The record is a 73-nucleotide RNA from Brumimicrobium salinarum, which matches "tRNA" in Rfam. The base pairs follow the family's consensus structure, which is taken from published work. From the family's description: Transfer RNA (tRNA) molecules are approximately 80 nucleotides in length.
Nucleotides: 073
Base pairs, nucleotide, nucleotide: 001072002071003070004069005068006067007066010025011024012023013022027043028042029041030040031039049065050064051063052062053061
Number, partner (000 for none) and nucleotide at each position: 001072g002071a003070u004069u005068c006067c007066g008000u009000a010025g011024c012023u013022c014000a015000g016000u017000u018000g019000g020000u021000a022013g023012a024011g025010c026000a027043c028042c029041u030040c031039c032000c033000u034000u035000u036000u037000a038000a039031g040030g041029a042028g043027g044000u045000g046000g047000u048000c049065c050064u051063g052062g053061g054000u055000u056000c057000g058000a059000g060000c061053c062052c063051c064050a065049g066007c067006g068005g069004g070003a071002u072001c073000a